[Rfam]
RNA: Small nucleolar RNA ACA64
RNA sequence: ACAGUCCGAAAAUAACUUGGGGUCUCCUGUGCCCCCUGGUGUGAUAACUGCGCUGACAGCAGAGGGAGCAUUAAACUCAUUGCCCACAGUAAAGUGUGGGGAGUGAUACCCAUGCUCCUAUAAUC
Numbered sequence: 001a002c003a004g005u006c007c008g009a010a011a012a013u014a015a016c017u018u019g020g021g022g023u024c025u026c027c028u029g030u031g032c033c034c035c036c037u038g039g040u041g042u043g044a045u046a047a048c049u050g051c052g053c054u055g056a057c058a059g060c061a062g063a064g065g066g067a068g069c070a071u072u073a074a075a076c077u078c079a080u081u082g083c084c085c086a087c088a089g090u091a092a093a094g095u096g097u098g099g100g101g102a103g104u105g106a107u108a109c110c111c112a113u114g115c116u117c118c119u120a121u122a123a124u125c
Stems, first nucleotide, its partner, number of pairs: 006050001008048001010045001015040002019034003065118001067116005077106005085098003